[Rfam]
RNA sequence: AAUCAUACAGAAGGAGUCUUCUCGUCGGCGUCGGUGGGUAUCCGAACUGCGUUUUGUUAUGACGGCUUCUGGUGUAGUCGUGUUGGCGAAGGCAUUGAAUCAUUAUGGGAUUGACAGCUCACGGAACAGUCUUCAGCUUUGCAAUGACCAGUGUCGGACGACGAUAUUCACGGUUGACGUCGGAAGCAGCGCCGGGACCCAUCUCGAGUUGGAGUCAAAGUUUCGUGCUUGUCUGGUGCUGUGGAAGGCCCUGCCGCUGGGUUGAGUCUACGAUUCCGAGUCGCACUGAUGAGAUUGGGUGGUAUUGGAUCUAAGGACAGGCCUUGUUGGAUGAGGUAGUCCUGGCUGUCCUCUCGCCUGAAAAUGGUGCGGAGGACAGCCCCCC
Numbered sequence: 001a002a003u004c005a006u007a008c009a010g011a012a013g014g015a016g017u018c019u020u021c022u023c024g025u026c027g028g029c030g031u032c033g034g035u036g037g038g039u040a041u042c043c044g045a046a047c048u049g050c051g052u053u054u055u056g057u058u059a060u061g062a063c064g065g066c067u068u069c070u071g072g073u074g075u076a077g078u079c080g081u082g083u084u085g086g087c088g089a090a091g092g093c094a095u096u097g098a099a100u101c102a103u104u105a106u107g108g109g110a111u112u113g114a115c116a117g118c119u120c121a122c123g124g125a126a127c128a129g130u131c132u133u134c135a136g137c138u139u140u141g142c143a144a145u146g147a148c149c150a151g152u153g154u155c156g157g158a159c160g161a162c163g164a165u166a167u168u169c170a171c172g173g174u175u176g177a178c179g180u181c182g183g184a185a186g187c188a189g190c191g192c193c194g195g196g197a198c199c200c201a202u203c204u205c206g207a208g209u210u211g212g213a214g215u216c217a218a219a220g221u222u223u224c225g226u227g228c229u230u231g232u233c234u235g236g237u238g239c240u241g242u243g244g245a246a247g248g249c250c251c252u253g254c255c256g257c258u259g260g261g262u263u264g265a266g267u268c269u270a271c272g273a274u275u276c277c278g279a280g281u282c283g284c285a286c287u288g289a290u291g292a293g294a295u296u297g298g299g300u301g302g303u304a305u306u307g308g309a310u311c312u313a314a315g316g317a318c319a320g321g322c323c324u325u326g327u328u329g330g331a332u333g334a335g336g337u338a339g340u341c342c343u344g345g346c347u348g349u350c351c352u353c354u355c356g357c358c359u360g361a362a363a364a365u366g367g368u369g370c371g372g373a374g375g376a377c378a379g380c381c382c383c384c385c
Stems, first nucleotide, its partner, number of pairs: 196216003199212003218230004
RNA: Ascomycota telomerase RNA, nucleotides 1116 to 1500
Organism: Fusarium sarcochroum